[Rfam]
RNA sequence: GGGGUCGACUGGUUUUGACAGCAAGUCGAAUUGAAAAGUAAGCACGCCGAGAACUGGGACAAUUCUCGUAAAUAAAAGGUUUCAAAACACAUACACGGCGAAGGAAACUACGCUCUUGCUGCAUAAUCUGAAUUAUAGUAAGAUUAGCCUCGUCCUACCAGGUAGGAAAGCAGGAUUUACCUCGAAAGCUUUGGUUUAUGGCGGUCGAUUAAGGUGAAUCGUAAAUUUAAACCUAGAUUUCCAUAAGCUUCGAGUGGAUUUCGAAACUAAAGAAGAUAAGCAAUGUGUGGCUGUUUCUGGCCGAGCACAAAGUCGAAAAUCCAAUCAGGAAAUAAACGUGUAGAAAGCUCUUUAGUUGCUUGUUUGGACCCGGGUUCGAUUCCCGGCGAUUCCACAA
Numbered sequence: 001g002g003g004g005u006c007g008a009c010u011g012g013u014u015u016u017g018a019c020a021g022c023a024a025g026u027c028g029a030a031u032u033g034a035a036a037a038g039u040a041a042g043c044a045c046g047c048c049g050a051g052a053a054c055u056g057g058g059a060c061a062a063u064u065c066u067c068g069u070a071a072a073u074a075a076a077a078g079g080u081u082u083c084a085a086a087a088c089a090c091a092u093a094c095a096c097g098g099c100g101a102a103g104g105a106a107a108c109u110a111c112g113c114u115c116u117u118g119c120u121g122c123a124u125a126a127u128c129u130g131a132a133u134u135a136u137a138g139u140a141a142g143a144u145u146a147g148c149c150u151c152g153u154c155c156u157a158c159c160a161g162g163u164a165g166g167a168a169a170g171c172a173g174g175a176u177u178u179a180c181c182u183c184g185a186a187a188g189c190u191u192u193g194g195u196u197u198a199u200g201g202c203g204g205u206c207g208a209u210u211a212a213g214g215u216g217a218a219u220c221g222u223a224a225a226u227u228u229a230a231a232c233c234u235a236g237a238u239u240u241c242c243a244u245a246a247g248c249u250u251c252g253a254g255u256g257g258a259u260u261u262c263g264a265a266a267c268u269a270a271a272g273a274a275g276a277u278a279a280g281c282a283a284u285g286u287g288u289g290g291c292u293g294u295u296u297c298u299g300g301c302c303g304a305g306c307a308c309a310a311a312g313u314c315g316a317a318a319a320u321c322c323a324a325u326c327a328g329g330a331a332a333u334a335a336a337c338g339u340g341u342a343g344a345a346a347g348c349u350c351u352u353u354a355g356u357u358g359c360u361u362g363u364u365u366g367g368a369c370c371c372g373g374g375u376u377c378g379a380u381u382c383c384c385g386g387c388g389a390u391u392c393c394a395c396a397a
Base pairs, nucleotide, nucleotide: 001393002392003391004390005389006388007387019366020365021363022362023361024360025359026358030356031355032354033353034352035351037349038348039347043340044339045338046337048068049067050066051065052064055084056083057082058081059080060079114143115142116141117140118139119138120137121136176218177217178216179215180214181213182208183207184206185205188202189201190200195230196229198227235261236260237259238258239257240256242254246277248275249274250273251272280313281312284309285308286307287306288305289302290301291300294331295330296329299325370386371385372384373383374382

Record summary
The family of this 397-nucleotide RNA sequence from Flavobacterium fluvii is "transfer-messenger RNA". The family's RNA type in Rfam is non-coding RNA gene. Bacterial tmRNA, also known as 10Sa RNA or SsrA, is named for its dual tRNA and mRNA-like properties. Its role is to liberate the mRNA from a stalled ribosome. To accomplish this part of the tmRNA is used as a reading frame that ends in a translation stop signal. The broken mRNA is replaced in the ribosome by the tmRNA and translation of the tmRNA leads to addition of a proteolysis tag to the incomplete protein enabling recognition by a protease. A search with the family's covariance model found it, with a score of 127 bits. The literature on the family includes a 1996 paper in RNA by Williams and Bartel, "Phylogenetic analysis of tmRNA secondary structure". Taxonomically the source falls in Flavobacterium (Bacteria, Pseudomonadati, Bacteroidota, Flavobacteriaceae).